[Rfam]
RNA sequence: UCACUUAACUCCCCCCUGGGCUGAGCUGAUAUCUGAUGAAGUUUCGGUCCCAUGAUUGUGCGAGAGCUACUCGGUGCUUCGUGUUGCGGAGUAACGACUUUUUUCGUGUGUGACUCCGUGUCAAAAUAGCCCGUACAUCG
Numbered sequence: 001u002c003a004c005u006u007a008a009c010u011c012c013c014c015c016c017u018g019g020g021c022u023g024a025g026c027u028g029a030u031a032u033c034u035g036a037u038g039a040a041g042u043u044u045c046g047g048u049c050c051c052a053u054g055a056u057u058g059u060g061c062g063a064g065a066g067c068u069a070c071u072c073g074g075u076g077c078u079u080c081g082u083g084u085u086g087c088g089g090a091g092u093a094a095c096g097a098c099u100u101u102u103u104u105c106g107u108g109u110g111u112g113a114c115u116c117c118g119u120g121u122c123a124a125a126a127u128a129g130c131c132c133g134u135a136c137a138u139c140g
Stems, first nucleotide, its partner, number of pairs: 004060001006058003010055002018050007025042003072133003076130003082123002085120006094111003
Dot-bracket structure: ...(.(((.((......((((((((((............))).)))))))...))))).)...........(((.(((...((.((((((...(((............)))...)))))).))....)))))).......
Shown here is a 140-nucleotide sequence from Closterium sp. NIES-68, a member of the family "small nucleolar RNA snoR134".
Its family is annotated with nucleolus and RNA processing in the Gene Ontology.
It scores 44 bits against the family's covariance model.
Rfam classes the family as an H/ACA-box small nucleolar RNA.